[Rfam]
RNA sequence: GAGUGUAUCUCAGUGGCGAUGGCUAACUCAGUCAUUGAGGAAGCCGGAGCGAAAGCAACAAGCGUGCAUCUUCGGAGAGGCGCGGCGUAUACAAGUGCGCGGAGUCACUGAGUUACUAUCCGAAGCCGGGCGAUCUAGGCGUGGGCAGGUUGAAGCGUGGCGAAAGCUACGUGGAGGACCGCAAGCGGUACUGAUCUGCAAAUCGUUCGCGUGACCUGCGUCUAGGGGUGAAAGGCCAAUCUAGCCCGGCAUCAGCUGGUU
Number, nucleotide and partner (000 for none) at each position: 001g000002a000003g000004u000005g116006u115007a114008u000009c112010u111011c110012a109013g108014u107015g106016g105017c104018g000019a000020u000021g045022g044023c043024u042025a000026a000027c039028u038029c037030a036031g000032u000033c000034a000035u000036u030037g029038a028039g027040g000041a000042a024043g023044c022045c021046g000047g000048a000049g056050c055051g000052a000053a000054a000055g050056c049057a000058a000059c000060a000061a000062g083063c082064g081065u080066g000067c000068a000069u076070c075071u000072u000073c000074g000075g070076a069077g000078a000079g000080g065081c064082g063083c062084g000085g000086c099087g098088u097089a096090u000091a000092c000093a000094a000095g000096u089097g088098c087099g086100c000101g000102g000103a000104g017105u016106c015107a014108c013109u012110g011111a010112g009113u000114u007115a006116c005117u000118a000119u259120c258121c000122g256123a000124a000125g000126c249127c248128g247129g246130g245131c244132g000133a000134u000135c225136u224137a223138g222139g221140c220141g219142u218143g217144g216145g215146c213147a000148g180149g179150u178151u177152g000153a000154a000155g172156c171157g170158u169159g168160g167161c166162g000163a000164a000165a000166g161167c160168u159169a158170c157171g156172u155173g000174g000175a000176g000177g151178a150179c149180c148181g000182c000183a000184a000185g210186c209187g208188g207189u000190a206191c205192u000193g204194a203195u000196c000197u000198g000199c000200a000201a000202a000203u194204c193205g191206u190207u188208c187209g186210c185211g000212u000213g146214a000215c145216c144217u143218g142219c141220g140221u139222c138223u137224a136225g135226g000227g237228g236229u235230g000231a000232a000233a000234g000235g229236c228237c227238a000239a000240u000241c000242u000243a000244g131245c130246c129247c128248g127249g126250c000251a000252u000253c000254a000255g000256c122257u000258g120259g119260u000261u000